[Rfam]
RNA sequence: AAUUCCAUUCCUAGGAACAAAGAGAAGCAGAUCUUUUCUAUACCCGAUAAGUACCAAUACGCAAUGGGG
Numbered sequence: 001a002a003u004u005c006c007a008u009u010c011c012u013a014g015g016a017a018c019a020a021a022g023a024g025a026a027g028c029a030g031a032u033c034u035u036u037u038c039u040a041u042a043c044c045c046g047a048u049a050a051g052u053a054c055c056a057a058u059a060c061g062c063a064a065u066g067g068g069g
Base pairs, nucleotide, nucleotide: 003022004021008017009016010015043068044067045066051060052059053058
Source information:
A member of the RNA family "Plastid-clpP 5UTR RNA" from Kingdonia uniflora, 69 nucleotides long. The family's RNA type in Rfam is cis-regulatory element. A search with the family's covariance model found it, with a score of 85 bits. Rfam's curators write: Plastid clpP is a non-coding RNA (ncRNA) recognised in plastids. It was found in the prime untranslated region (5UTR) of a protease complex subunit (clpP) in plastids, suggesting a posible cis-regulatory function. A reference for the family is Richter et al. (2023), "Retrograde signaling in plants: A critical review focusing on the GUN pathway and beyond", Plant Commun.